This 87-nucleotide RNA from Dipodomys ordii belongs to the Rfam family "mir-3473 microRNA precursor family".
RNA sequence: ACCACUGAGCCACCUUCCCAGCCCAAAUAUUCCUAUUUUUAAUAAACGUUAAAAACUUUACUGGGGCUGGGAAGGUGGCUCAGUGGU
Numbered sequence: 001a002c003c004a005c006u007g008a009g010c011c012a013c014c015u016u017c018c019c020a021g022c023c024c025a026a027a028u029a030u031u032c033c034u035a036u037u038u039u040u041a042a043u044a045a046a047c048g049u050u051a052a053a054a055a056c057u058u059u060a061c062u063g064g065g066g067c068u069g070g071g072a073a074g075g076u077g078g079c080u081c082a083g084u085g086g087u
Stems, first nucleotide, its partner, number of pairs: 002086023
NCBI's taxonomy places the organism under Eukaryota, Opisthokonta, Sarcopterygii, Boreoeutheria, Dipodomys.
The base pairs follow the family's consensus structure, which was predicted with RNAalifold.